[Rfam]
Nucleotides: 127
Stems, first nucleotide, its partner, number of pairs: 002055005015041004023032002065124001068121001070118003073114001075112002079102003084097001086095001
Number, partner (000 for none) and nucleotide at each position: 001000c002055u003054c004053c005052a006051u007000u008000c009000a010000c011000u012000u013000u014000u015041g016040g017039g018038a019000c020000c021000c022000a023032u024031c025000a026000g027000g028000u029000g030000u031024g032023a033000c034000a035000u036000g037000u038018u039017c040016u041015c042000u043000u044000u045000c046000u047000a048000g049000c050000u051006a052005u053004g054003g055002a056000a057000g058000a059000g060000c061000u062000u063000u064000u065124u066000a067000c068121u069000a070118u071117u072116g073114g074000a075112a076111a077000a078000g079102c080101u081100g082000u083000u084097a085000g086095c087000c088000u089000u090000u091000a092000c093000a094000u095086g096000a097084u098000a099000u100081u101080a102079g103000g104000u105000u106000u107000g108000g109000a110000c111076u112075u113000g114073u115000a116072c117071a118070a119000g120000u121068a122000a123000c124065a125000u126000u127000c